Shown here is a 56-nucleotide RNA from Novispirillum itersonii, a member of the family "terC RNA". The base pairs follow the family's consensus structure, which is taken from published work. The source organism's lineage runs through Bacteria, Pseudomonadati, Alphaproteobacteria, Rhodospirillales and Novispirillum.
RNA sequence: GCCUGGGUCCGGGCCCCUCUGGCGGUGAGGCGUCACCGUGAUGUCGGAUCCCCUCG
Dot-bracket structure: .....(((((((.........(((((((....)))))))....)))))))......